Small nucleolar RNA SNORD47: a 74-nucleotide RNA sequence from Polypterus senegalus.
RNA sequence: AACCUGUGAUGAUGAGAUUCUGCCAAAUGAAGGCUGUGAUUAAAUUGCAUUUCCGUUCCACUUAUUCUGAGGUU
Numbered sequence: 001a002a003c004c005u006g007u008g009a010u011g012a013u014g015a016g017a018u019u020c021u022g023c024c025a026a027a028u029g030a031a032g033g034c035u036g037u038g039a040u041u042a043a044a045u046u047g048c049a050u051u052u053c054c055g056u057u058c059c060a061c062u063u064a065u066u067c068u069g070a071g072g073u074u
Stems, first nucleotide, its partner, number of pairs: 001074004
The family's consensus secondary structure was predicted with ILM. The match comes from Rfam's covariance-model search (61 bits). The family's RNA type in Rfam is C/D-box small nucleolar RNA.